[Rfam]
RNA sequence: GUAGCCUGUUGGGUAGUCGCUUGAGUUAAUCUUAAGAGGAAAGUCCGGGCAGUGAAGGACGACGGCAGUCGCUAACGGCGACCGGGGGAGACCCUAGGGAAAGUGCCACAGAAACGAAACUACCUCUAUUUAUAUAGAGGAAAAGGUGAAACGAGUGAGGUAAAAGCUCACAGUCGUCUACGGUGACGUAGAUGGGAGGUAAACCCUGCCGACUGCAAGGAGGUCUGCAUGCAAAGAGGAGUCCACUCGUAGGCCGAUAACCGCUUGAUUUGUUUGGCAACAAGCAAACUAGAUAGAUGAUUACCCUAGACAGAACCCGGCUUAUAGACAGGCUAUAAGA
Numbered sequence: 001g002u003a004g005c006c007u008g009u010u011g012g013g014u015a016g017u018c019g020c021u022u023g024a025g026u027u028a029a030u031c032u033u034a035a036g037a038g039g040a041a042a043g044u045c046c047g048g049g050c051a052g053u054g055a056a057g058g059a060c061g062a063c064g065g066c067a068g069u070c071g072c073u074a075a076c077g078g079c080g081a082c083c084g085g086g087g088g089a090g091a092c093c094c095u096a097g098g099g100a101a102a103g104u105g106c107c108a109c110a111g112a113a114a115c116g117a118a119a120c121u122a123c124c125u126c127u128a129u130u131u132a133u134a135u136a137g138a139g140g141a142a143a144a145g146g147u148g149a150a151a152c153g154a155g156u157g158a159g160g161u162a163a164a165a166g167c168u169c170a171c172a173g174u175c176g177u178c179u180a181c182g183g184u185g186a187c188g189u190a191g192a193u194g195g196g197a198g199g200u201a202a203a204c205c206c207u208g209c210c211g212a213c214u215g216c217a218a219g220g221a222g223g224u225c226u227g228c229a230u231g232c233a234a235a236g237a238g239g240a241g242u243c244c245a246c247u248c249g250u251a252g253g254c255c256g257a258u259a260a261c262c263g264c265u266u267g268a269u270u271u272g273u274u275u276g277g278c279a280a281c282a283a284g285c286a287a288a289c290u291a292g293a294u295a296g297a298u299g300a301u302u303a304c305c306c307u308a309g310a311c312a313g314a315a316c317c318c319g320g321c322u323u324a325u326a327g328a329c330a331g332g333c334u335a336u337a338a339g340a
Base pairs, nucleotide, nucleotide: 001336002335003334004333005332006331007330008329009328010327011325012305013304014303015302016301017300018299020036021035022034023033024032025031041323042322043321045320046319047318048317049316050215051214052213053212058243059242060241063211064210065209066208067207068082069081070080071079072078083097084095085094086093087092098206099205103204104203105200106199107198120145121144123140124139125138126137127136128135129134155171156170157169158168159167174196175194176193177192178191179190180189181188182187219262220261223254224253225252226251227250228249235247236246238244269288270287271286272285273284274283275282276281